Group II catalytic intron D1-D4-3: a 178-nucleotide sequence from Fulvivirga sediminis.
Taxonomically the source falls in Fulvivirga (Bacteria, Pseudomonadati, Bacteroidota, Cytophagia).
The pairing is the family consensus, mapped onto this sequence.
[Rfam]
RNA sequence: UUAACCGCGAGGUUAGAACUGAAGUAAGCCAGACUGCGGUGUCUGUACUGAAGAACAUGAACCACAUACAGAGGCUAUGAGGCCGGAUGAGGUAACACAUGCUGCCGAAGUCCAACCCCUCGAAAGAGGCUAGUGCUGAAAUAGUAGAUGUGGCAGCGAUAGACACAAGGAUAUUCAC
Numbered sequence: 001u002u003a004a005c006c007g008c009g010a011g012g013u014u015a016g017a018a019c020u021g022a023a024g025u026a027a028g029c030c031a032g033a034c035u036g037c038g039g040u041g042u043c044u045g046u047a048c049u050g051a052a053g054a055a056c057a058u059g060a061a062c063c064a065c066a067u068a069c070a071g072a073g074g075c076u077a078u079g080a081g082g083c084c085g086g087a088u089g090a091g092g093u094a095a096c097a098c099a100u101g102c103u104g105c106c107g108a109a110g111u112c113c114a115a116c117c118c119c120u121c122g123a124a125a126g127a128g129g130c131u132a133g134u135g136c137u138g139a140a141a142u143a144g145u146a147g148a149u150g151u152g153g154c155a156g157c158g159a160u161a162g163a164c165a166c167a168a169g170g171a172u173a174u175u176c177a178c
Stems, first nucleotide, its partner, number of pairs: 001016006028178001031175002035171001040165006046158001048156003062153006074145003081131004085113004091106004